The record is a 307-nucleotide RNA sequence from Electrophorus electricus, which matches "Nuclear RNase P" in Rfam.
Pairs were carried over by alignment from the consensus structure, which is taken from published work.
NCBI's taxonomy places the organism under Eukaryota, Chordata, Osteoglossocephalai, Gymnotiformes, Electrophorus.
RNA sequence: GCGGGAGGAAGCUCACUGUAGAGAUCACAUGCAGAGUGCUCGUCACUCACCCAAUCAUCUCGGGGAAGGUCUGAGACAAGAGCCAAUUGCUGCCCUCACAGGACAUCAUCUGACUCAGAUGAGCGAGCGCACAGAAAACUUGGGCCAACGCAUGGCGUUCACGCAUGAGACGUUGGUGACUGCACAAUUCAGCAUGCUAACUGAUGCGAACCCUGCUGGCUUGGAACCACUCGCGGCUAGCAAGCUGAGUGCGAUGUGUGAGCUGGUACAUGGGACCAGAACCCAAUUCAGACUACUCUCCCCCCAC
Numbered sequence: 001g002c003g004g005g006a007g008g009a010a011g012c013u014c015a016c017u018g019u020a021g022a023g024a025u026c027a028c029a030u031g032c033a034g035a036g037u038g039c040u041c042g043u044c045a046c047u048c049a050c051c052c053a054a055u056c057a058u059c060u061c062g063g064g065g066a067a068g069g070u071c072u073g074a075g076a077c078a079a080g081a082g083c084c085a086a087u088u089g090c091u092g093c094c095c096u097c098a099c100a101g102g103a104c105a106u107c108a109u110c111u112g113a114c115u116c117a118g119a120u121g122a123g124c125g126a127g128c129g130c131a132c133a134g135a136a137a138a139c140u141u142g143g144g145c146c147a148a149c150g151c152a153u154g155g156c157g158u159u160c161a162c163g164c165a166u167g168a169g170a171c172g173u174u175g176g177u178g179a180c181u182g183c184a185c186a187a188u189u190c191a192g193c194a195u196g197c198u199a200a201c202u203g204a205u206g207c208g209a210a211c212c213c214u215g216c217u218g219g220c221u222u223g224g225a226a227c228c229a230c231u232c233g234c235g236g237c238u239a240g241c242a243a244g245c246u247g248a249g250u251g252c253g254a255u256g257u258g259u260g261a262g263c264u265g266g267u268a269c270a271u272g273g274g275a276c277c278a279g280a281a282c283c284c285a286a287u288u289c290a291g292a293c294u295a296c297u298c299u300c301c302c303c304c305c306a307c
Stems, first nucleotide, its partner, number of pairs: 001307001003305002007301003012262005021061004034048005071291005081238004091105002094102002106122006123234005129228001144220003263279005269273001